Alphaproteobacterial sRNA BjrC1505: a 142-nucleotide RNA. Rfam classes the family as a small RNA. The literature on the family includes a 2012 paper in RNA Biol by Madhugiri et al., "Small RNAs of the Bradyrhizobium/Rhodopseudomonas lineage and their analysis".

[Rfam]
RNA sequence: CCGCGGUUUAACGCGACAUUAAGCUUUCCCCUCUAUUACUGGGGCUUGUCCAUCUUCAUGGACUUUGAGUGGCUCCUGUCCACUCUGUUUGACGCCUCCCUGUUAUCUAACUUGAGCCGCCGGCAACGGCGGCUCCUUUUUU
Dot-bracket structure: ((((........))((...((.(........).))))...)).....((((........))))...((((((.......)))))).....((((......)))).........(((((((((....))))))))).......